[Rfam]
The record is a 61-nucleotide sequence from Pristionchus pacificus, which matches "mir-8364 microRNA precursor family" in Rfam.
It scores 69 bits against the family's covariance model.
Rfam 15.1 lists 3,320 matches to the family in 2 species.
NCBI's taxonomy places the organism under Eukaryota, Protostomia, Rhabditida, Neodiplogasteridae, Pristionchus.
Rfam links the family to the GO terms miRNA-mediated post-transcriptional gene silencing and RISC complex.
RNA sequence: UCUUCAUUUUGCACACUCUCUCACCUGUCCGAGAAGCAAGAGAGUGUGUGAAGUGAAGAGA
Numbered sequence: 001u002c003u004u005c006a007u008u009u010u011g012c013a014c015a016c017u018c019u020c021u022c023a024c025c026u027g028u029c030c031g032a033g034a035a036g037c038a039a040g041a042g043a044g045u046g047u048g049u050g051a052a053g054u055g056a057a058g059a060g061a
Base pairs, nucleotide, nucleotide: 001059002058003057004056005055006054007053010050012048013047014046015045016044017043019041020040021039